Record summary: Rfam assigns this 311-nucleotide RNA from Dromas ardeola to the family "7SK RNA". Rfam classes the family as a non-coding RNA gene. Pairs were carried over by alignment from the consensus structure, which is taken from published work. Taxonomically the source falls in Dromas (Eukaryota, Chordata, Euteleostomi, Sauria).

RNA sequence: GGAUGUGAGGGCGAUCUGGCUGCGACAUCUGUCACCCCAUUGAUCGCCAGGGUUGAUUCGGCUGAUCUGGCUGGCUAGGCGGGUGUCUCCUUCCUCCCUCACCAAUCCAUGUGCGUCCCUCCUGAAGCUGUGCGCUCUGUCGAAGAGGACGACCUUCCCCGAUAGAGACGUACCGUUCAUCGAUCAAGGGUAUACGGUAGCUGCGCUCCCCUAGAACCUCCAAACAAGCUCUAAGGGAGGUUGGUUGUGGGGUUUCCUGGGGGGAUUUGGCCAGGGUGGGUAACUCUUUGCUUCAGAAAUGGUCUUGGUGC
Numbered sequence: 001g002g003a004u005g006u007g008a009g010g011g012c013g014a015u016c017u018g019g020c021u022g023c024g025a026c027a028u029c030u031g032u033c034a035c036c037c038c039a040u041u042g043a044u045c046g047c048c049a050g051g052g053u054u055g056a057u058u059c060g061g062c063u064g065a066u067c068u069g070g071c072u073g074g075c076u077a078g079g080c081g082g083g084u085g086u087c088u089c090c091u092u093c094c095u096c097c098c099u100c101a102c103c104a105a106u107c108c109a110u111g112u113g114c115g116u117c118c119c120u121c122c123u124g125a126a127g128c129u130g131u132g133c134g135c136u137c138u139g140u141c142g143a144a145g146a147g148g149a150c151g152a153c154c155u156u157c158c159c160c161g162a163u164a165g166a167g168a169c170g171u172a173c174c175g176u177u178c179a180u181c182g183a184u185c186a187a188g189g190g191u192a193u194a195c196g197g198u199a200g201c202u203g204c205g206c207u208c209c210c211c212u213a214g215a216a217c218c219u220c221c222a223a224a225c226a227a228g229c230u231c232u233a234a235g236g237g238a239g240g241u242u243g244g245u246u247g248u249g250g251g252g253u254u255u256c257c258u259g260g261g262g263g264g265a266u267u268u269g270g271c272c273a274g275g276g277u278g279g280g281u282a283a284c285u286c287u288u289u290g291c292u293u294c295a296g297a298a299a300u301g302g303u304c305u306u307g308g309u310g311c
Stems, first nucleotide, its partner, number of pairs: 001108003005102007013093002018090002024087010035074002037070003042067004046062003117170001119167003122139001124137002127135002140162003147158003200285001202283001206279002209276003219265003225260001227258002